[Rfam]
RNA sequence: GUUUGCCUGUGUGUGGAUGGUGUUCAGCACCAAGGUAAUGUCUGUUUGCUUGUGUGUGGAUGGUAUUCAGUACCAAGGACAGGUAUGUUUGCUU
Number, nucleotide and partner (000 for none) at each position: 001g000002u000003u000004u085005g084006c083007c082008u081009g080010u079011g000012u000013g000014u000015g000016g000017a000018u075019g074020g073021u072022g071023u070024u069025c000026a067027g066028c000029a064030c063031c062032a061033a000034g055035g000036u000037a000038a051039u000040g049041u048042c000043u000044g000045u000046u000047u000048g041049c040050u000051u038052g000053u000054g000055u034056g000057u000058g000059g000060a000061u032062g031063g030064u029065a000066u027067u026068c000069a024070g023071u022072a021073c020074c019075a018076a000077g000078g000079a010080c009081a008082g007083g006084u005085a004086u000087g000088u000089u000090u000091g000092c000093u000094u000
Background: This 94-nucleotide RNA from Branchiostoma lanceolatum belongs to the Rfam family "mir-2060 microRNA precursor family". Rfam links the family to the GO terms miRNA-mediated post-transcriptional gene silencing and RISC complex. It scores 86 bits against the family's covariance model. The family's consensus secondary structure was predicted with RNAalifold.